[Rfam]
RNA: Plant small nucleolar RNA R71
Organism: Brassica carinata
RNA sequence: AAUCUGUGGUGUGGACAGUCUCACUGGAAGAACUUGAAUCUGAUCCAUGCAUCUUUGAAAGACUCUCCAGUCUUAUGCACGAAUGUAGCGAUUUUGCUCUUCAAGUCU
Numbered sequence: 001a002a003u004c005u006g007u008g009g010u011g012u013g014g015a016c017a018g019u020c021u022c023a024c025u026g027g028a029a030g031a032a033c034u035u036g037a038a039u040c041u042g043a044u045c046c047a048u049g050c051a052u053c054u055u056u057g058a059a060a061g062a063c064u065c066u067c068c069a070g071u072c073u074u075a076u077g078c079a080c081g082a083a084u085g086u087a088g089c090g091a092u093u094u095u096g097c098u099c100u101u102c103a104a105g106u107c108u
Stems, first nucleotide, its partner, number of pairs: 001108001004105001005103002057074002060071001